The record is a 121-nucleotide sequence from Metabacillus sediminilitoris, which matches "PyrR binding site" in Rfam. Rfam's curators write: This family represents the PyrR binding site and terminator structure. This RNA structure is found upstream of a variety of genes involved in pyrimidine biosynthesis and transport. The alignment also includes a portion of the antiterminator structure. Pairs were carried over by alignment from the consensus structure, which is taken from published work. Rfam classes the family as a cis-regulatory element. NCBI's taxonomy places the organism under Bacteria, Bacillati, Bacilli, Bacillaceae, Metabacillus.
RNA sequence: AGACCCUUUUAAAAAUAGUCCAGAGAGGCUGCAAAGGGAAACAUAAAGAUCAAGUUGCAUACGCGAUUGAUGAUCUUUUUGUACCUCUUUGCAUUCAAACUGGCAAAGAGGUUUUUUGUUU
Numbered sequence: 001a002g003a004c005c006c007u008u009u010u011a012a013a014a015a016u017a018g019u020c021c022a023g024a025g026a027g028g029c030u031g032c033a034a035a036g037g038g039a040a041a042c043a044u045a046a047a048g049a050u051c052a053a054g055u056u057g058c059a060u061a062c063g064c065g066a067u068u069g070a071u072g073a074u075c076u077u078u079u080u081g082u083a084c085c086u087c088u089u090u091g092c093a094u095u096c097a098a099a100c101u102g103g104c105a106a107a108g109a110g111g112u113u114u115u116u117u118g119u120u121u
Base pairs, nucleotide, nucleotide: 004038005037006036007035008034009033016031017030018029019028020027047076048075049074050073051072052071053068054067055066056065057064058063081114083112084111085110086109087108088107089106090105091104092103